[Rfam]
RNA sequence: GCCCCGCCUUCCCAGUGUUCAGACUACCUGUUCAGGAAGCUACAAAGGUGUACAGUAGUCUGCACAUUGGUUAGACUGGGCU
Numbered sequence: 001g002c003c004c005c006g007c008c009u010u011c012c013c014a015g016u017g018u019u020c021a022g023a024c025u026a027c028c029u030g031u032u033c034a035g036g037a038a039g040c041u042a043c044a045a046a047g048g049u050g051u052a053c054a055g056u057a058g059u060c061u062g063c064a065c066a067u068u069g070g071u072u073a074g075a076c077u078g079g080g081c082u
Base pairs, nucleotide, nucleotide: 012070013069014068015067016066017065018064020062021061022060023059024058025057026056028055029054030053031052033050034049